This 87-nucleotide RNA from Ferrimonas marina belongs to the Rfam family "t44 RNA". The match comes from Rfam's covariance-model search (77 bits). This family consists of a number of bacterial RNA genes of between 135 and 170 bases in length. The t44 gene has been identified in several species of enteric bacteria but homologs have also been identified in Pseudomonas and Coxiella species. The t44 gene is found between the map and rpsB genes in all species in the full alignment apart from Shigella flexneri.
[Rfam]
RNA sequence: UAAAAUUAACUCAUAAACCACACACGUACCGACACAUAGUGCGGGGUGCCCUUCGGGGUCGGGCUAUGGAGUACGUGGAGGCUUAAC
Numbered sequence: 001u002a003a004a005a006u007u008a009a010c011u012c013a014u015a016a017a018c019c020a021c022a023c024a025c026g027u028a029c030c031g032a033c034a035c036a037u038a039g040u041g042c043g044g045g046g047u048g049c050c051c052u053u054c055g056g057g058g059u060c061g062g063g064c065u066a067u068g069g070a071g072u073a074c075g076u077g078g079a080g081g082c083u084u085a086a087c
Stems, first nucleotide, its partner, number of pairs: 023077007035068006042061002048059004